[Rfam]
RNA sequence: AGCUGCAUUACAGGGUAAACUCUCCAUUGGCAGGCAGCCACUUACAGAACUAAUUUGCAUUAUUUGUUUUAGUGUGCUCUCUGCCAAAGGAGAUUUGCCCGGCAAUUCUUGC
Number, nucleotide and partner (000 for none) at each position: 001a000002g000003c000004u000005g108006c000007a106008u105009u104010a000011c102012a000013g100014g099015g098016u097017a096018a095019a094020c000021u000022c092023u091024c090025c089026a000027u000028u086029g085030g084031c083032a082033g081034g080035c000036a078037g000038c000039c000040a000041c000042u000043u000044a000045c000046a000047g000048a000049a000050c000051u000052a000053a000054u000055u000056u000057g000058c000059a000060u000061u000062a000063u000064u000065u000066g000067u000068u000069u000070u000071a000072g000073u000074g000075u000076g000077c000078u036079c000080u034081c033082u032083g031084c030085c029086a028087a000088a000089g025090g024091a023092g022093a000094u019095u018096u017097g016098c015099c014100c013101g000102g011103c000104a009105a008106u007107u000108c005109u000110u000111g000112c000

This 112-nucleotide RNA from Manihot esculenta belongs to the Rfam family "mir-399 microRNA precursor family". It scores 75 bits against the family's covariance model. Rfam 15.1 lists 2,396 matches to the family in 221 species. Gene Ontology terms of the family: miRNA-mediated post-transcriptional gene silencing and RISC complex. On this family, see Jones-Rhoades and Bartel, Mol Cell 2004: "Computational Identification of Plant MicroRNAs and Their Targets, Including a Stress-Induced miRNA".